[Rfam]
Notes:
The family of this 58-nucleotide RNA from Hevea brasiliensis is "MIR164 microRNA precursor family". NCBI's taxonomy places the organism under Eukaryota, Gunneridae, Malpighiales, Micrandreae, Hevea.
RNA sequence: UGGAGAAGGGGAGCACGUGCAAUUUCUAGAGAGAUUGCACGUGCCCUGCUUCUCCAGC
Dot-bracket structure: ((((((((.((.((((((((((((........)))))))))))).)).))))))))..